[Rfam]
RNA sequence: UUGACGCUGUACUCCCACAUGCUCUGCGGGUCCACCAGCGACUCGUCGCCGAAGUGGUCGCCGUUCGCGAGCGUGUCGAGCACCGUUUCGUCGCCGUACCGGCCCGGCCCGACCUUGGUGACCUUGCCGUGCGCGAUGAGGAACGCCUCGUUCGACUCGUGCCCGAAUUCCACGAUGGUGUCGCCCGCGGCGAAUUCCCGUUGCUCGAACCCGUUGGCCAGCGCGGCGAGCACGUCGGGGUCGGUGAACCCGCGGAACAACGGCAGCUCGCCGAGUUCGGCCGGGAUCACCCGGAUUUCCGGUCCGUCGCUCGUGAACGUGACGCGGCCGUCACCGACCGCGUAGGACAGGCGCCGGUUCACCCGGUAGGUGCCGCCGGACACCUGUGUCCACGGCAGCAUUCUCAGCAGCCACCGCGACGAGACACCCUGCAUCUGGGGGACGGACUUCUUGGUCGUGGCCAGGUUCCGAGCCGCGGCGGUCGCCAGGCUCUGCUGCGGCCGCUCACCG
Numbered sequence: 001u002u003g004a005c006g007c008u009g010u011a012c013u014c015c016c017a018c019a020u021g022c023u024c025u026g027c028g029g030g031u032c033c034a035c036c037a038g039c040g041a042c043u044c045g046u047c048g049c050c051g052a053a054g055u056g057g058u059c060g061c062c063g064u065u066c067g068c069g070a071g072c073g074u075g076u077c078g079a080g081c082a083c084c085g086u087u088u089c090g091u092c093g094c095c096g097u098a099c100c101g102g103c104c105c106g107g108c109c110c111g112a113c114c115u116u117g118g119u120g121a122c123c124u125u126g127c128c129g130u131g132c133g134c135g136a137u138g139a140g141g142a143a144c145g146c147c148u149c150g151u152u153c154g155a156c157u158c159g160u161g162c163c164c165g166a167a168u169u170c171c172a173c174g175a176u177g178g179u180g181u182c183g184c185c186c187g188c189g190g191c192g193a194a195u196u197c198c199c200g201u202u203g204c205u206c207g208a209a210c211c212c213g214u215u216g217g218c219c220a221g222c223g224c225g226g227c228g229a230g231c232a233c234g235u236c237g238g239g240g241u242c243g244g245u246g247a248a249c250c251c252g253c254g255g256a257a258c259a260a261c262g263g264c265a266g267c268u269c270g271c272c273g274a275g276u277u278c279g280g281c282c283g284g285g286a287u288c289a290c291c292c293g294g295a296u297u298u299c300c301g302g303u304c305c306g307u308c309g310c311u312c313g314u315g316a317a318c319g320u321g322a323c324g325c326g327g328c329c330g331u332c333a334c335c336g337a338c339c340g341c342g343u344a345g346g347a348c349a350g351g352c353g354c355c356g357g358u359u360c361a362c363c364c365g366g367u368a369g370g371u372g373c374c375g376c377c378g379g380a381c382a383c384c385u386g387u388g389u390c391c392a393c394g395g396c397a398g399c400a401u402u403c404u405c406a407g408c409a410g411c412c413a414c415c416g417c418g419a420c421g422a423g424a425c426a427c428c429c430u431g432c433a434u435c436u437g438g439g440g441g442a443c444g445g446a447c448u449u450c451u452u453g454g455u456c457g458u459g460g461c462c463a464g465g466u467u468c469c470g471a472g473c474c475g476c477g478g479c480g481g482u483c484g485c486c487a488g489g490c491u492c493u494g495c496u497g498c499g500g501c502c503g504c505u506c507a508c509c510g
Stems, first nucleotide, its partner, number of pairs: 006390001008388004021325002026320003031316002035313001037311006045305001049301001051299002054233002058229007065111001067109001075103001077102001080099001082097002085094002117222001119220002122217002129210002131206001133204004138199001140197001143196001149192002156189001158187002161184002163178002234296003240290002243287001245285001249283001253279002256277003261270002329342003352378002355375003360372004391431002394428002399423001401421001403418001405416001407415001437476001439474002443470004447465003452460001477509002479503003483499002486497003
Dot-bracket structure: .....(.((((.........((...(((..((..(.((((((..(...(.((.((..((((((((.(.......(.(..(.((.((......)).)).)..)).....).).....(.((.((.....(((.((((.(.(..(.....((.....(.((.((((............))....)).)).).))...)).).)))).)..)).....)).)).))))))))..))(((...((.(.(...(...((.(((..((......))....)))))...).).).))...))).)).)...))))))).).)).)))...))...(((........))).........((.(((..((((.....))))))).))......)))).)((.((...(.(.(.(.(.......)).)..).)...)).)).....(.((..(((((((..(.......)..))).))))..)).)(((((.((.(((......))))).)))....)).
Source information
Rfam assigns this 510-nucleotide RNA from Actinophytocola algeriensis to the family "Saccharopolyspora sRNA 350". The match comes from Rfam's covariance-model search (157 bits). For this family Rfam cites "Prediction and characterization of small non-coding RNAs related to secondary metabolites in Saccharopolyspora erythraea" (Liu et al., PLoS One, 2013). Rfam 15.1 lists 1,170 matches to the family in 705 species. Gene Ontology term of the family: regulation of secondary metabolite biosynthetic process.